[Rfam]
mir-367 microRNA precursor family: a 68-nucleotide RNA from Ictidomys tridecemlineatus.
Gene Ontology terms of the family: miRNA-mediated post-transcriptional gene silencing and RISC complex.
The base pairs follow the family's consensus structure, which was predicted with RNAalifold.

RNA sequence: CCAUCACCAUUGCUAAAGUGCAAUUCCAGUUUAUAUUCAACAGAAUUGCAUAUUAGCAACAGUGAUGG
Number, nucleotide and partner (000 for none) at each position: 001c000002c000003a000004u000005c064006a063007c062008c000009a000010u059011u058012g057013c056014u055015a054016a053017a000018g000019u050020g049021c048022a047023a046024u000025u044026c043027c000028a000029g000030u000031u000032u000033a000034u000035a000036u000037u000038c000039a000040a000041c000042a000043g026044a025045a000046u023047u022048g021049c020050a019051u000052a000053u016054u015055a014056g013057c012058a011059a010060c000061a000062g007063u006064g005065a000066u000067g000068g000

The match comes from Rfam's covariance-model search (56 bits).